c-di-GMP-I riboswitch aptamer: a 112-nucleotide RNA from Litorilituus lipolyticus.
RNA sequence: ACAAAGAAAAGGCAAAACCUGUGAAAGCAGGCGACGCAAAACCACCGGCCUAAGGUGUUUAUGAAUUUUGUUUACUUAAUUUGUAAUUGACUAUGGCAGCGGAGUUACCACG
Dot-bracket structure: ...........((....(((((....)))))....))..(((..((((((....((.................................))...)))..))).)))......
Numbered sequence: 001a002c003a004a005a006g007a008a009a010a011g012g013c014a015a016a017a018c019c020u021g022u023g024a025a026a027g028c029a030g031g032c033g034a035c036g037c038a039a040a041a042c043c044a045c046c047g048g049c050c051u052a053a054g055g056u057g058u059u060u061a062u063g064a065a066u067u068u069u070g071u072u073u074a075c076u077u078a079a080u081u082u083g084u085a086a087u088u089g090a091c092u093a094u095g096g097c098a099g100c101g102g103a104g105u106u107a108c109c110a111c112g
Stems, first nucleotide, its partner, number of pairs: 012037002018031005040106003045102003048097003055091002

The organism belongs to Litorilituus, within Bacteria.